[Rfam]
Shown here is a 38-nucleotide sequence, a member of the family "abiF RNA". The family's consensus secondary structure is taken from published work. From the family's description: Actinobacteria, Bacteroidetes, Clostridia, Proteobacteria, one Clostridia phage. Rfam's curators put it in the seed alignment.
RNA sequence: CUCGCCAAGCCUCUUCACAAUGCUCAAAUCGUGCGAGG
Numbered sequence: 001c002u003c004g005c006c007a008a009g010c011c012u013c014u015u016c017a018c019a020a021u022g023c024u025c026a027a028a029u030c031g032u033g034c035g036a037g038g
Stems, first nucleotide, its partner, number of pairs: 001037005006031001008024003

It is annotated as a small RNA. The family has 126 seed sequences and 282 matches in Rfam 15.1.